Background:
Rfam assigns this 82-nucleotide RNA from Clostridium neonatale to the family "c-di-GMP-I riboswitch aptamer". About the family: GEMM was predicted in a large-scale screen for bacterial structured RNA regulatory elements. Gene Ontology term of the family: cyclic-di-GMP binding. The base pairs follow the family's consensus structure, which is taken from published work. NCBI's taxonomy places the organism under Bacteria, Bacillota, Clostridia, Clostridiaceae, Clostridium.
[Rfam]
RNA sequence: AAUUUAAUAGGGCAAAGCAGUUGAAAAGCUGUGACGCAAAGCUAGAGGGCCUUUUCCUAAUGGAUGGCAGCCAGUUGCAUUU
Numbered sequence: 001a002a003u004u005u006a007a008u009a010g011g012g013c014a015a016a017g018c019a020g021u022u023g024a025a026a027a028g029c030u031g032u033g034a035c036g037c038a039a040a041g042c043u044a045g046a047g048g049g050c051c052u053u054u055u056c057c058u059a060a061u062g063g064a065u066g067g068c069a070g071c072c073a074g075u076u077g078c079a080u081u082u
Base pairs, nucleotide, nucleotide: 012037013036017032018031019030020029021028022027040076041075042074043073047072048071049068050067051066